Rfam assigns this 107-nucleotide sequence from Neorhizobium sp. S3-V5DH to the family "Alphaproteobacterial ar15". The literature on the family includes a 2011 paper in Mol Microbiol by Wilms et al., "Small RNA-mediated control of the Agrobacterium tumefaciens GABA binding protein". Rfam classes the family as a small RNA. The base pairs follow the family's consensus structure.

[Rfam]
RNA sequence: AGCUGACGCCAUCGGCGACCUCCCCGUCGUCCGCGCCAGCUGUUCCCCUCUGGAGGUUUUGACCUUCACAACUGACGGGCCCUGGAGAAAUCCGGCGGCCCAUUUUU
Numbered sequence: 001a002g003c004u005g006a007c008g009c010c011a012u013c014g015g016c017g018a019c020c021u022c023c024c025c026g027u028c029g030u031c032c033g034c035g036c037c038a039g040c041u042g043u044u045c046c047c048c049u050c051u052g053g054a055g056g057u058u059u060u061g062a063c064c065u066u067c068a069c070a071a072c073u074g075a076c077g078g079g080c081c082c083u084g085g086a087g088a089a090a091u092c093c094g095g096c097g098g099c100c101c102a103u104u105u106u107u
Base pairs, nucleotide, nucleotide: 001041002040003039004038005037007035008034009033015031016029017028018027051068052067053066054065055064056063057062077101078100079099080098081097082095083094084093085092